The record is a 97-nucleotide RNA from Rynchops niger, which matches "Vault RNA" in Rfam. From the family's description: This family of RNAs are found as part of the enigmatic vault ribonucleoprotein complex. The complex consists of a major vault protein (MVP), two minor vault proteins (VPARP and TEP1), and several small untranslated RNA molecules. It has been suggested that the vault complex is involved in drug resistance. Lineage of the source: Eukaryota > Bilateria > Saurischia > Laridae > Rynchops. Rfam classes the family as a non-coding RNA gene.
RNA sequence: GGGCCAGCUGUAGCCCAGCAGUUACUUUGGUGGUUCACAUGCGUAUUGUGUCUUGCCCCACAAGGGGUUCGAUACCGUGGGCACCCCUGGCCCAUUU
Numbered sequence: 001g002g003g004c005c006a007g008c009u010g011u012a013g014c015c016c017a018g019c020a021g022u023u024a025c026u027u028u029g030g031u032g033g034u035u036c037a038c039a040u041g042c043g044u045a046u047u048g049u050g051u052c053u054u055g056c057c058c059c060a061c062a063a064g065g066g067g068u069u070c071g072a073u074a075c076c077g078u079g080g081g082c083a084c085c086c087c088u089g090g091c092c093c094a095u096u097u
Stems, first nucleotide, its partner, number of pairs: 002092006013082004018078002021076001027072004